Shown here is a 90-nucleotide RNA from Enterovirus betacoxsackie, a member of the family "Enterovirus 5' cloverleaf cis-acting replication element".
RNA sequence: UUAAAACAGGGUGUGGGUUAUUCCCACCCACAGGGCCCACCGGGCGCUAGCACACUGGUAUCACGGUACCUUUGUGCGCCUGUUUUAUAC
Numbered sequence: 001u002u003a004a005a006a007c008a009g010g011g012u013g014u015g016g017g018u019u020a021u022u023c024c025c026a027c028c029c030a031c032a033g034g035g036c037c038c039a040c041c042g043g044g045c046g047c048u049a050g051c052a053c054a055c056u057g058g059u060a061u062c063a064c065g066g067u068a069c070c071u072u073u074g075u076g077c078g079c080c081u082g083u084u085u086u087a088u089a090c
Stems, first nucleotide, its partner, number of pairs: 002087007012032007035045003046079002050077004057070004

About the family: This family represents a cis-regulatory element found at the 5' end of Enterovirus genomes. The element has a cloverleaf like secondary structure and is known to be a multifunctional cis-acting replication element (CRE), required for the initiation of negative strand RNA synthesis. Rfam's curators put it in the seed alignment.